[Rfam]
RNA sequence: UUGUGCUAGGCGGGGAGUUAGCGGUGCCCUUAUCCCGAAAUCCGCUUUAUGCGGGGCUGAAUUCCCACCCCAGGAUCCGAUAAUUGGAAAACCUGAAUCGUUUUGAUCGGACACCACGCAACAGACGGUCGCGAACCUCGUCAGGUCCGGAAGGAAGCAGCGAUAAGUGAUGCAGUUUGUGUCGUGGAUUGAUCCCGAUCUGCAUAAUGAGCCGGGGUUUCCAAAAAAGAUACGAAGGUGGGUGCACAA
Numbered sequence: 001u002u003g004u005g006c007u008a009g010g011c012g013g014g015g016a017g018u019u020a021g022c023g024g025u026g027c028c029c030u031u032a033u034c035c036c037g038a039a040a041u042c043c044g045c046u047u048u049a050u051g052c053g054g055g056g057c058u059g060a061a062u063u064c065c066c067a068c069c070c071c072a073g074g075a076u077c078c079g080a081u082a083a084u085u086g087g088a089a090a091a092c093c094u095g096a097a098u099c100g101u102u103u104u105g106a107u108c109g110g111a112c113a114c115c116a117c118g119c120a121a122c123a124g125a126c127g128g129u130c131g132c133g134a135a136c137c138u139c140g141u142c143a144g145g146u147c148c149g150g151a152a153g154g155a156a157g158c159a160g161c162g163a164u165a166a167g168u169g170a171u172g173c174a175g176u177u178u179g180u181g182u183c184g185u186g187g188a189u190u191g192a193u194c195c196c197g198a199u200c201u202g203c204a205u206a207a208u209g210a211g212c213c214g215g216g217g218u219u220u221c222c223a224a225a226a227a228a229g230a231u232a233c234g235a236a237g238g239u240g241g242g243u244g245c246a247c248a249a
Base pairs, nucleotide, nucleotide: 001249002248003247004246005245006244009058010057011056012030013029014028015027017025018024019023034055035054036053037052039050064242065241066240067239068238069237073233075231076230077229081227084224085223086222087221088220089219090218098210099209102207103206105200106199107198108197109196110195111193114187115186116185117184118183119181120180122179123178124177125176126175128171129170130169131168132167138163139162140161141160146155147154148153

Rfam assigns this 249-nucleotide sequence from an Olavius algarvensis Delta 1 endosymbiont to the family "Bacterial large signal recognition particle RNA". Rfam links the family to the GO terms SRP-dependent cotranslational protein targeting to membrane, signal sequence recognition and signal recognition particle, plasma membrane targeting. Lineage of the source: Bacteria > delta/epsilon subdivisions > Deltaproteobacteria. Rfam describes the family as follows. The signal recognition particle (SRP) is a universally conserved ribonucleoprotein involved in the co-translational targeting of proteins to membranes. Clan: SRP clan.